RNA: Purine riboswitch aptamer
RNA sequence: AUUAAAUUCAUAUCACUUACUCAUAUAAUCGCGGGGAUAUGGCCCGCAAGUUUCUACCGGAUGACCGUGAAUCGUCCGACUAUGGGUGAGCAAUGAACGGAA
Numbered sequence: 001a002u003u004a005a006a007u008u009c010a011u012a013u014c015a016c017u018u019a020c021u022c023a024u025a026u027a028a029u030c031g032c033g034g035g036g037a038u039a040u041g042g043c044c045c046g047c048a049a050g051u052u053u054c055u056a057c058c059g060g061a062u063g064a065c066c067g068u069g070a071a072u073c074g075u076c077c078g079a080c081u082a083u084g085g086g087u088g089a090g091c092a093a094u095g096a097a098c099g100g101a102a
Stems, first nucleotide, its partner, number of pairs: 018088008029049001031047005058078007